A member of the RNA family "UnaL2 LINE 3' element" from Sinocyclocheilus rhinocerous, 54 nucleotides long.
Lineage of the source: Eukaryota > Gnathostomata > Teleostomi > Cyprinoidei > Sinocyclocheilus.
Pairs were carried over by alignment from the consensus structure, which is taken from published work.
The match comes from Rfam's covariance-model search (65 bits).
RNA sequence: AACCGUCACUUCUGUAAGUCGCUUUGGAUAAAAGUGUCUGCUAAAUGACUAAAU
Numbered sequence: 001a002a003c004c005g006u007c008a009c010u011u012c013u014g015u016a017a018g019u020c021g022c023u024u025u026g027g028a029u030a031a032a033a034g035u036g037u038c039u040g041c042u043a044a045a046u047g048a049c050u051a052a053a054u
Stems, first nucleotide, its partner, number of pairs: 013043001014041003020036006